[Rfam]
RNA sequence: UGCGGUUUUCGUCGCCGGGGAGCUCGACCCCCGAAAGCGCUGAUCGUGUCGUUCAUCGAUGACCAGCGCGCCAAGGGCCGCGCGGUCGAGUCGAUCUGCGAUGUCCUGCCAGAGCAGGGCGUGCAGGUCGCCGCG
Numbered sequence: 001u002g003c004g005g006u007u008u009u010c011g012u013c014g015c016c017g018g019g020g021a022g023c024u025c026g027a028c029c030c031c032c033g034a035a036a037g038c039g040c041u042g043a044u045c046g047u048g049u050c051g052u053u054c055a056u057c058g059a060u061g062a063c064c065a066g067c068g069c070g071c072c073a074a075g076g077g078c079c080g081c082g083c084g085g086u087c088g089a090g091u092c093g094a095u096c097u098g099c100g101a102u103g104u105c106c107u108g109c110c111a112g113a114g115c116a117g118g119g120c121g122u123g124c125a126g127g128u129c130g131c132c133g134c135g
Base pairs, nucleotide, nucleotide: 017031018030019029020028081135082134083133084132085131092130093129095127096126097125098124099123100122
The record is a 135-nucleotide RNA from Sediminivirga luteola, which matches "ALIL pseudoknot" in Rfam.
It scores 51 bits against the family's covariance model.